Notes
Shown here is a 75-nucleotide sequence from Myotis brandtii, a member of the family "mir-9223 microRNA precursor family". The family has 9 seed sequences and 14,641 matches in Rfam 15.1. The match comes from Rfam's covariance-model search (65 bits).

RNA sequence: GGCAGUUCUCAGGUGACACACCCCAAAAUUGGAUUCCCUCCUCUCUGGUUCCGGGUGCAUCACCCAAGAACUACA
Numbered sequence: 001g002g003c004a005g006u007u008c009u010c011a012g013g014u015g016a017c018a019c020a021c022c023c024c025a026a027a028a029u030u031g032g033a034u035u036c037c038c039u040c041c042u043c044u045c046u047g048g049u050u051c052c053g054g055g056u057g058c059a060u061c062a063c064c065c066a067a068g069a070a071c072u073a074c075a
Stems, first nucleotide, its partner, number of pairs: 002074001005071005012064005019057005027050007